[Rfam]
RNA sequence: GAAGACCCUGUUGAGCUUGACUCUAGUCUGCCAUUGUGAAGAGACAUGAGAGGCGUAGAAUAAGUGGGAGGCCCCCCGGCCCCGCCCGGGGCCAUGGGGCGCCGCCGGUGAAAUACCACUACUCUUAUCGUUUUUUCACUCACCCGGUGAGGCGGGAGGGGGAGCCCCGCGGGGCUCUCGCUUCUGGCGUCAAGCGCCCCGCGCGUGCGGGGCGUGACCCGUGCCGGGGACAGUGGCAGGUGGGGAGUUUGACUGGGGCGGUACACCUGUCAAACCGUAACGCAGGUGUCCUAAGGCGAGCUCAGGGAGGCCAGAAACCUCCCGUGGAGCAGAAGGGCAAAAGCUCGCUUGAUCUUGAUUUUCAGUAUGAGUACAGACCGUGAAAGCGGGGCCUCACGAUCCUUCUGGCUUUUUGGGUUUCAAGCAGGAGGUGUCAGAAAAGUUACCACAGGGAUAACUGGCUUGUGGCGGCCAAGCGUUCAUAGCGACGUCGCUUUUUGAUCCUUCGAUGUCGGCUCUUCCUAUCAUUGUGAAGCAGAAUUCACCAAGCGUUGGAUUGUUCACCCACUAAUAGGGAACGUGAGCUGGGUUUA
Numbered sequence: 001g002a003a004g005a006c007c008c009u010g011u012u013g014a015g016c017u018u019g020a021c022u023c024u025a026g027u028c029u030g031c032c033a034u035u036g037u038g039a040a041g042a043g044a045c046a047u048g049a050g051a052g053g054c055g056u057a058g059a060a061u062a063a064g065u066g067g068g069a070g071g072c073c074c075c076c077c078g079g080c081c082c083c084g085c086c087c088g089g090g091g092c093c094a095u096g097g098g099g100c101g102c103c104g105c106c107g108g109u110g111a112a113a114u115a116c117c118a119c120u121a122c123u124c125u126u127a128u129c130g131u132u133u134u135u136u137c138a139c140u141c142a143c144c145c146g147g148u149g150a151g152g153c154g155g156g157a158g159g160g161g162g163a164g165c166c167c168c169g170c171g172g173g174g175c176u177c178u179c180g181c182u183u184c185u186g187g188c189g190u191c192a193a194g195c196g197c198c199c200c201g202c203g204c205g206u207g208c209g210g211g212g213c214g215u216g217a218c219c220c221g222u223g224c225c226g227g228g229g230a231c232a233g234u235g236g237c238a239g240g241u242g243g244g245g246a247g248u249u250u251g252a253c254u255g256g257g258g259c260g261g262u263a264c265a266c267c268u269g270u271c272a273a274a275c276c277g278u279a280a281c282g283c284a285g286g287u288g289u290c291c292u293a294a295g296g297c298g299a300g301c302u303c304a305g306g307g308a309g310g311c312c313a314g315a316a317a318c319c320u321c322c323c324g325u326g327g328a329g330c331a332g333a334a335g336g337g338c339a340a341a342a343g344c345u346c347g348c349u350u351g352a353u354c355u356u357g358a359u360u361u362u363c364a365g366u367a368u369g370a371g372u373a374c375a376g377a378c379c380g381u382g383a384a385a386g387c388g389g390g391g392c393c394u395c396a397c398g399a400u401c402c403u404u405c406u407g408g409c410u411u412u413u414u415g416g417g418u419u420u421c422a423a424g425c426a427g428g429a430g431g432u433g434u435c436a437g438a439a440a441a442g443u444u445a446c447c448a449c450a451g452g453g454a455u456a457a458c459u460g461g462c463u464u465g466u467g468g469c470g471g472c473c474a475a476g477c478g479u480u481c482a483u484a485g486c487g488a489c490g491u492c493g494c495u496u497u498u499u500g501a502u503c504c505u506u507c508g509a510u511g512u513c514g515g516c517u518c519u520u521c522c523u524a525u526c527a528u529u530g531u532g533a534a535g536c537a538g539a540a541u542u543c544a545c546c547a548a549g550c551g552u553u554g555g556a557u558u559g560u561u562c563a564c565c566c567a568c569u570a571a572u573a574g575g576g577a578a579c580g581u582g583a584g585c586u587g588g589g590u591u592u593a
Stems, first nucleotide, its partner, number of pairs: 007452004012448002014444005020248004027240007036139010046128007063120005070103002143228005153221004162177005194215008251264001252262003265287006290391002296348006302328002305323006329338002353377003358372004379388003402430006410424003461502001463500001465499001467495006476486002513588001514586004518580001519577005526551001530545005553567003557563001
This 593-nucleotide part of an RNA from Erpetoichthys calabaricus belongs to the Rfam family "Eukaryotic large subunit ribosomal RNA". Taxonomically the source falls in Erpetoichthys (Eukaryota, Opisthokonta, Metazoa, Polypteridae). Gene Ontology terms of the family: structural constituent of ribosome and ribosome.